A member of the RNA family "Bacterial large subunit ribosomal RNA" from Thiohalophilus thiocyanatoxydans, 587 nucleotides of a longer RNA. The match comes from Rfam's covariance-model search (2894 bits).
[Rfam]
RNA sequence: CCCGCGGCUAGACGGAAAGACCCCGUGAACCUUUACUAUAGCUUCACACUGAACUUUGAGCCUACUUGUGUAGGAUAGCUGGGAGGCUUUGAAACCGAGACGCCAGUUUCGGUGGAGCCAUCCUUGAAAUACCAGCCUGGUAUGUUUGAGGUUCUAACCCAGGCCCGUUAUCCGGGUCGGGGACAGUGUGUGGUGGGUAGUUUGACUGGGGCGGUCUCCUCCCAAAAGGUAACGGAGGAGCACGAAGGUACCCUCAGCACGGUCGGACAUCGUGCAUUGAGUGCAAAGGCAUAAGGGUGCUUGACUGCGAGACAGACAUGUCGAGCAGGUACGAAAGUAGGUCUUAGUGAUCCGGUGGCUCUUAGUGGUAGGGCCAUCGCUCAACGGAUAAAAGGUACUCCGGGGAUAACAGGCUGAUUCUCCCCAAGAGUUCACAUCGACGGGAGAGUUUGGCACCUCGAUGUCGGCUCAUCACAUCCUGGGGCUGUAGCCGGUCCCAAGGGUAUGGCUGUUCGCCAUUUAAAGUGGUACGCGAGCUGGGUUUAGAACGUCGUGAGACAGUUCGGUCCCUAUCUGCCGUGGGCGUU
Numbered sequence: 001c002c003c004g005c006g007g008c009u010a011g012a013c014g015g016a017a018a019g020a021c022c023c024c025g026u027g028a029a030c031c032u033u034u035a036c037u038a039u040a041g042c043u044u045c046a047c048a049c050u051g052a053a054c055u056u057u058g059a060g061c062c063u064a065c066u067u068g069u070g071u072a073g074g075a076u077a078g079c080u081g082g083g084a085g086g087c088u089u090u091g092a093a094a095c096c097g098a099g100a101c102g103c104c105a106g107u108u109u110c111g112g113u114g115g116a117g118c119c120a121u122c123c124u125u126g127a128a129a130u131a132c133c134a135g136c137c138u139g140g141u142a143u144g145u146u147u148g149a150g151g152u153u154c155u156a157a158c159c160c161a162g163g164c165c166c167g168u169u170a171u172c173c174g175g176g177u178c179g180g181g182g183a184c185a186g187u188g189u190g191u192g193g194u195g196g197g198u199a200g201u202u203u204g205a206c207u208g209g210g211g212c213g214g215u216c217u218c219c220u221c222c223c224a225a226a227a228g229g230u231a232a233c234g235g236a237g238g239a240g241c242a243c244g245a246a247g248g249u250a251c252c253c254u255c256a257g258c259a260c261g262g263u264c265g266g267a268c269a270u271c272g273u274g275c276a277u278u279g280a281g282u283g284c285a286a287a288g289g290c291a292u293a294a295g296g297g298u299g300c301u302u303g304a305c306u307g308c309g310a311g312a313c314a315g316a317c318a319u320g321u322c323g324a325g326c327a328g329g330u331a332c333g334a335a336a337g338u339a340g341g342u343c344u345u346a347g348u349g350a351u352c353c354g355g356u357g358g359c360u361c362u363u364a365g366u367g368g369u370a371g372g373g374c375c376a377u378c379g380c381u382c383a384a385c386g387g388a389u390a391a392a393a394g395g396u397a398c399u400c401c402g403g404g405g406a407u408a409a410c411a412g413g414c415u416g417a418u419u420c421u422c423c424c425c426a427a428g429a430g431u432u433c434a435c436a437u438c439g440a441c442g443g444g445a446g447a448g449u450u451u452g453g454c455a456c457c458u459c460g461a462u463g464u465c466g467g468c469u470c471a472u473c474a475c476a477u478c479c480u481g482g483g484g485c486u487g488u489a490g491c492c493g494g495u496c497c498c499a500a501g502g503g504u505a506u507g508g509c510u511g512u513u514c515g516c517c518a519u520u521u522a523a524a525g526u527g528g529u530a531c532g533c534g535a536g537c538u539g540g541g542u543u544u545a546g547a548a549c550g551u552c553g554u555g556a557g558a559c560a561g562u563u564c565g566g567u568c569c570c571u572a573u574c575u576g577c578c579g580u581g582g583g584c585g586u587u
Stems, first nucleotide, its partner, number of pairs: 001583008010575003014570002022404004027400002029396005035201004042193002045190004051154011063142004068137001078136005085119003094113008158181003162178006204216004217239006240385001242342002248300006254280002257275006281290002305328004311322003330339003353379007361372002413454003417451001418448007428438002465540001466538004470532001471529005478503002481498006505519005546564004550559003
Dot-bracket structure: ((((((((.(((.((......((((.(((((((.((((...((.((((..(((((((((((.((((.(.........(((((..(((......((((((((....))))))))...)))............)))))).)))).)))))))))))...(((.((((((.....))))))))).....)))).))....))))..((((.....))))((((((...........))))))(.((....((((((((.((((((.......))))))...))((......))....))))))....((((..(((......)))..)))).(((....))).))..........(((((((.((........))))))))).....)......)))))..))))))........(((.((((((((...((.......))...)))))))..))))..........(((((((((((..((.((((((......))))))...)).(((((.....))))).....)))))..)..)))).).....(((((((....))).))))....))..)))))))))))....